[Rfam]
RNA sequence: UGAGGUUGGCAUCAGGUGGAUGUUUCAUAAACCCGGUCAGGUCUGAAAAGAAGCAGCCGUAGUGAAAAUUAUUCAGGUUGUUGCCUGCCUCUAAA
Numbered sequence: 001u002g003a004g005g006u007u008g009g010c011a012u013c014a015g016g017u018g019g020a021u022g023u024u025u026c027a028u029a030a031a032c033c034c035g036g037u038c039a040g041g042u043c044u045g046a047a048a049a050g051a052a053g054c055a056g057c058c059g060u061a062g063u064g065a066a067a068a069u070u071a072u073u074c075a076g077g078u079u080g081u082u083g084c085c086u087g088c089c090u091c092u093a094a095a
Base pairs, nucleotide, nucleotide: 002091003090004089005088006087009084010083011082013080014079017075018074019073020072021071022070023067024066025065026064027063028062034059035058036057037056042051043050044049
RNA: Bacterial small signal recognition particle RNA